RNA: Small nucleolar RNA SNORD35
RNA sequence: GGCAGAUGAUGGUUUUUUCUCACGAUGGUCUGCGGAGGCCACUGACGGGCAGUGCCGAGAAUGCCACAGGCUCAGCUGAUGCCAGGAG
Number, nucleotide and partner (000 for none) at each position: 001g083002g082003c081004a080005g000006a000007u000008g000009a000010u000011g000012g000013u000014u000015u000016u000017u000018u000019c000020u000021c000022a000023c000024g000025a000026u000027g000028g000029u000030c000031u000032g000033c000034g000035g000036a000037g000038g000039c000040c000041a000042c000043u000044g000045a000046c000047g000048g000049g000050c000051a000052g000053u000054g000055c000056c000057g000058a000059g000060a000061a000062u000063g000064c000065c000066a000067c000068a000069g000070g000071c000072u000073c000074a000075g000076c000077u000078g000079a000080u004081g003082c002083c001084a000085g000086g000087a000088g000